[Rfam]
RNA sequence: AUAGUCUGAAAAUCUCUUGUGAUCUUCUGUGGCCCCGGUGCGAUAACUGUGCCGACAGCAGAGGGAGCAUUAAACUCACUGCCCAAGGUAAAGUGCAAGGAGUGAUACCCAUGUUCCUAUAAUC
Numbered sequence: 001a002u003a004g005u006c007u008g009a010a011a012a013u014c015u016c017u018u019g020u021g022a023u024c025u026u027c028u029g030u031g032g033c034c035c036c037g038g039u040g041c042g043a044u045a046a047c048u049g050u051g052c053c054g055a056c057a058g059c060a061g062a063g064g065g066a067g068c069a070u071u072a073a074a075c076u077c078a079c080u081g082c083c084c085a086a087g088g089u090a091a092a093g094u095g096c097a098a099g100g101a102g103u104g105a106u107a108c109c110c111a112u113g114u115u116c117c118u119a120u121a122a123u124c
Stems, first nucleotide, its partner, number of pairs: 006049001008047001010044001014040001016038001021034001023032002064117001066115005076105005084095002

The family of this 124-nucleotide sequence from Bucco capensis is "Small nucleolar RNA ACA64". The base pairs follow the family's consensus structure, which was predicted with WAR. The source organism's lineage runs through Eukaryota, Euteleostomi, Archosauria, Theropoda and Bucco. By type it is an H/ACA-box small nucleolar RNA.